MIR2629 microRNA precursor family: a 72-nucleotide RNA from Medicago truncatula. Lineage of the source: Eukaryota > Streptophyta > Streptophytina > Euphyllophyta > Medicago.

RNA sequence: UACCGAGGAUUUCCUCGGCAGUUAACUGCAGCCGAUCUCUUAAUUCCUCGGCAGUUAACUGCCGAUGAGGCA
Numbered sequence: 001u002a003c004c005g006a007g008g009a010u011u012u013c014c015u016c017g018g019c020a021g022u023u024a025a026c027u028g029c030a031g032c033c034g035a036u037c038u039c040u041u042a043a044u045u046c047c048u049c050g051g052c053a054g055u056u057a058a059c060u061g062c063c064g065a066u067g068a069g070g071c072a
Stems, first nucleotide, its partner, number of pairs: 012068002015065015